[Rfam]
Nucleotides: 134
Stems, first nucleotide, its partner, number of pairs: 001056006014043005019037002022034003069125003073121004077116002082111001086107004
Number, partner (000 for none) and nucleotide at each position: 001056g002055c003054a004053g005052a006051c007000u008000c009000a010000c011000u012000c013000u014043g015042u016041a017040c018039c019037g020036a021000a022034c023033u024032g025000c026000a027000g028000g029000c030000u031000u032024c033023a034022g035000u036020u037019c038000a039018g040017g041016u042015g043014c044000u045000u046000u047000u048000u049000c050000u051006g052005u053004c054003u055002g056001c057000g058000a059000g060000a061000g062000c063000a064000g065000u066000a067000g068000u069125u070124c071123a072000c073121a074120g075119g076118c077116a078115u079000g080000a081000c082111a083000a084000a085000u086107g087106c088105c089104u090000u091000c092000u093000u094000u095000u096000u097000u098000u099000g100000u101000a102000g103000a104089a105088g106087g107086c108000u109000g110000u111082u112000a113000c114000a115078a116077u117000u118076g119075c120074u121073u122000u123071u124070g125069g126000g127000a128000c129000a130000u131000g132000g133000c134000u
This 134-nucleotide RNA sequence from Aythya fuligula belongs to the Rfam family "Small nucleolar RNA SNORA77". Rfam's curators write: ACA63 (SNORA77) is a member of the H/ACA class of snoRNAs that guide the sites of modification of uridines to pseudouridines. This snoRNA was identified by computational screening and its expression in mouse experimentally verified by Northern blot and primer extension analysis. ACA63 is proposed to guide the pseudouridylation of 18S rRNA U814. It is annotated as an H/ACA-box small nucleolar RNA. On this family, see Schattner et al., RNA 2006: "A computational screen for mammalian pseudouridylation guide H/ACA RNAs". Rfam 15.1 lists 843 matches to the family in 607 species. A search with the family's covariance model found it, with a score of 54 bits.